The family of this 79-nucleotide sequence from Phrynocephalus forsythii is "mir-130 microRNA precursor family". Its family is annotated with RISC complex and miRNA-mediated post-transcriptional gene silencing in the Gene Ontology.
RNA sequence: CAAUGGCUGGAGCCCUUUAAACCUGGCCCAGUCAGCACCUGGUACCAACUGGGCCAGGUUUAAAGGUCUCCAACCAUUG
Numbered sequence: 001c002a003a004u005g006g007c008u009g010g011a012g013c014c015c016u017u018u019a020a021a022c023c024u025g026g027c028c029c030a031g032u033c034a035g036c037a038c039c040u041g042g043u044a045c046c047a048a049c050u051g052g053g054c055c056a057g058g059u060u061u062a063a064a065g066g067u068c069u070c071c072a073a074c075c076a077u078u079g
Base pairs, nucleotide, nucleotide: 003078005075006074008072009071010070012068014066015065016064017063018062019061022058023057024056025055026054027053028052029051030050

The family's consensus secondary structure was predicted with PFOLD. It scores 44 bits against the family's covariance model. Lineage of the source: Eukaryota > Vertebrata > Sarcopterygii > Tetrapoda > Phrynocephalus.